Shown here is an 84-nucleotide sequence from Austrofundulus limnaeus, a member of the family "mir-143 microRNA precursor family". The organism belongs to Austrofundulus, within Eukaryota. Rfam 15.1 lists 657 matches to the family in 637 species. The literature on the family includes a 2002 paper in Curr Biol by Lagos-Quintana et al., "Identification of tissue-specific microRNAs from mouse". A search with the family's covariance model found it, with a score of 89 bits.
[Rfam]
RNA sequence: AUCCCUGCGGCCCGCGGUGCAGUGCUGCAUCUCUGGUCAGCUGCUAGUCUGAGAUGAAGCACUGUAGCUCGGGACGAAGGACAA
Numbered sequence: 001a002u003c004c005c006u007g008c009g010g011c012c013c014g015c016g017g018u019g020c021a022g023u024g025c026u027g028c029a030u031c032u033c034u035g036g037u038c039a040g041c042u043g044c045u046a047g048u049c050u051g052a053g054a055u056g057a058a059g060c061a062c063u064g065u066a067g068c069u070c071g072g073g074a075c076g077a078a079g080g081a082c083a084a
Base pairs, nucleotide, nucleotide: 011073012072013071016068018066019065020064021063022062023061024060025059026058028056029055030054031053032052033051035049036048037046